[Rfam]
RNA sequence: GAGUGACUACAGCUCUUUAAGAAUUUUUCUGGCUUUAUGAUUUUGAUCAGAAAACCCAA
Numbered sequence: 001g002a003g004u005g006a007c008u009a010c011a012g013c014u015c016u017u018u019a020a021g022a023a024u025u026u027u028u029c030u031g032g033c034u035u036u037a038u039g040a041u042u043u044u045g046a047u048c049a050g051a052a053a054a055c056c057c058a059a
Stems, first nucleotide, its partner, number of pairs: 031056002034053003038049004
A member of the RNA family "U7 small nuclear RNA" from Rattus norvegicus, 59 nucleotides long. The base pairs follow the family's consensus structure, which was predicted with PFOLD. NCBI's taxonomy places the organism under Eukaryota, Teleostomi, Amniota, Euarchontoglires, Rattus. The literature on the family includes a 2007 paper in Genomics Proteomics Bioinformatics by Marz et al., "U7 snRNAs: a computational survey". The match comes from Rfam's covariance-model search (42 bits). From the family's description: Animal histone pre-mRNAs are spliced by a different mechanism than nuclear pre-mRNAs and self-splicing introns. This processing involves the U7 snRNP, which contains only one RNA species: U7. The 5' end of U7 RNA is thought to base-pair to a conserved spacer element downstream of the cleavage site in histone pre-mRNA. This family contains a number of annotated U7 pseudogenes.